Record summary: Shown here is a 96-nucleotide RNA from Triticum turgidum, a member of the family "Small nucleolar RNA R30/Z108". It is annotated as a C/D-box small nucleolar RNA. Rfam describes the family as follows. snoR30 is a C/D box small nucleolar RNA which acts as a methylation guide for 18S ribosomal RNA in plants. Its Rfam clan is "SNORD100 clan". Gene Ontology terms of the family: nucleolus and RNA processing. A reference for the family is Marker et al. (2002), "Experimental RNomics. Identification of 140 Candidates for Small Non-Messenger RNAs in the Plant Arabidopsis thaliana", Curr Biol.
RNA sequence: AGUGGUUGUGAUGAGGAGAACAAGCUCCCUCUUCUGAAAGCAUUGACGACAUUGCUGGCACAAUCGAACGAAUUAAAAAUUGCCACCGCUGAGCAA
Dot-bracket structure: .....((((...................................................................................))))